The family of this 122-nucleotide RNA from Vigna radiata is "MIR396 microRNA precursor family". A reference for the family is Jones-Rhoades and Bartel (2004), "Computational identification of plant microRNAs and their targets, including a stress-induced miRNA", Mol Cell. Rfam 15.1 lists 744 matches to the family in 207 species. Pairs were carried over by alignment from the consensus structure, which was predicted with WAR. It scores 88 bits against the family's covariance model. The source organism's lineage runs through Eukaryota, Magnoliopsida, fabids, Papilionoideae and Vigna radiata.
[Rfam]
Nucleotides: 122
Stems, first nucleotide, its partner, number of pairs: 003119005013109003017105006024098004029093005
Number, partner (000 for none) and nucleotide at each position: 001000c002000u003119u004118u005117g006116u007115a008000u009000u010000c011000u012000u013109c014108c015107a016000c017105a018104g019103c020102u021101u022100u023000c024098u025097u026096g027095a028000a029093c030092u031091g032090c033089a034000u035000c036000c037000a038000u039000a040000g041000a042000g043000u044000u045000c046000c047000u048000u049000u050000g051000c052000a053000u054000g055000c056000a057000u058000g059000c060000c061000a062000u063000g064000g065000c066000a067000c068000u069000c070000u071000u072000g073000c074000u075000c076000c077000c078000a079000c080000a081000c082000c083000u084000u085000c086000u087000u088000u089033u090032g091031c092030g093029g094000u095027u096026c097025a098024a099000u100022a101021a102020a103019g104018c105017u106000g107015u108014g109013g110000g111000a112000a113000g114000a115007u116006a117005c118004a119003g120000a121000u122000a